[Rfam]
RNA sequence: AUGAGUGUUACGGGAGAGAACGCACAGGCGUCGCCGAAGGAGCAAAUGGAUGUGUCCCGAAUGUCCAUGAAUCUCUCAGGCAGAAGUACCGUAGGCAGGAC
Numbered sequence: 001a002u003g004a005g006u007g008u009u010a011c012g013g014g015a016g017a018g019a020a021c022g023c024a025c026a027g028g029c030g031u032c033g034c035c036g037a038a039g040g041a042g043c044a045a046a047u048g049g050a051u052g053u054g055u056c057c058c059g060a061a062u063g064u065c066c067a068u069g070a071a072u073c074u075c076u077c078a079g080g081c082a083g084a085a086g087u088a089c090c091g092u093a094g095g096c097a098g099g100a101c
Stems, first nucleotide, its partner, number of pairs: 008094006020031004033081003036077002040075003046068008

This 101-nucleotide sequence from Effusibacillus lacus belongs to the Rfam family "Glycine riboswitch aptamer". Lineage of the source: Bacteria > Bacillati > Bacillota > Bacilli > Effusibacillus. From the family's description: This family represents the bacterial glycine riboswitch. Gene Ontology term of the family: glycine biosynthetic process.